RNA sequence: GGAGCAAAACUGCGAGCUGACGAAUAGAAAUCGGAUAUGAGGCUGUCUGCGUGAGGACGAGUCAGCAUGUGAUGACGAAGUCCCAUACUCAUCCGGACACUCGGACAGUAAAUCCGGCAGUUGUGCAGGGAAGGCGGUGUAA
Number, nucleotide and partner (000 for none) at each position: 001g138002g000003a000004g135005c134006a000007a000008a000009a000010c128011u127012g126013c125014g124015a122016g121017c120018u119019g118020a000021c000022g000023a000024a000025u000026a000027g000028a000029a000030a000031u117032c116033g115034g114035a113036u112037a000038u000039g000040a000041g000042g109043c108044u107045g000046u105047c104048u103049g102050c000051g100052u099053g000054a000055g083056g082057a081058c080059g000060a000061g076062u075063c074064a073065g000066c000067a000068u000069g000070u000071g000072a000073u064074g063075a062076c061077g000078a000079a000080g058081u057082c056083c055084c000085a000086u000087a000088c000089u000090c000091a000092u000093c000094c000095g000096g000097a000098c000099a052100c051101u000102c049103g048104g047105a046106c000107a044108g043109u042110a000111a000112a036113u035114c034115c033116g032117g031118c019119a018120g017121u016122u015123g000124u014125g013126c012127a011128g010129g000130g000131a000132a000133g000134g005135c004136g000137g000138u001139g000140u000141a000142a000
RNA: Group II catalytic intron D1-D4-3
Organism: Endozoicomonas montiporae